About this RNA:
This 118-nucleotide RNA from Prevotella sp. AM34-19LB belongs to the Rfam family "Group II catalytic intron D1-D4-2". About the family: Group II introns are found in rRNA, tRNA and mRNA of organelles in fungi, plants and protists, and also in mRNA in bacteria. Its family is annotated with Group II intron splicing in the Gene Ontology.
RNA sequence: GGUGGAAGACCCACUGCAUUCGGCAUGCAGGUGCUGAUUGCAAACCACUUUGUGCUGCUCUGAUGGAAACAGACGGGUAGUGAACGACAAUUGAAAGCCUUCCGUAAGGUUGGCAAGG
Numbered sequence: 001g002g003u004g005g006a007a008g009a010c011c012c013a014c015u016g017c018a019u020u021c022g023g024c025a026u027g028c029a030g031g032u033g034c035u036g037a038u039u040g041c042a043a044a045c046c047a048c049u050u051u052g053u054g055c056u057g058c059u060c061u062g063a064u065g066g067a068a069a070c071a072g073a074c075g076g077g078u079a080g081u082g083a084a085c086g087a088c089a090a091u092u093g094a095a096a097g098c099c100u101u102c103c104g105u106a107a108g109g110u111u112g113g114c115a116a117g118g
Stems, first nucleotide, its partner, number of pairs: 001015005016041003020037002023034004045118002050090004054081002057078003064071001097114003102109001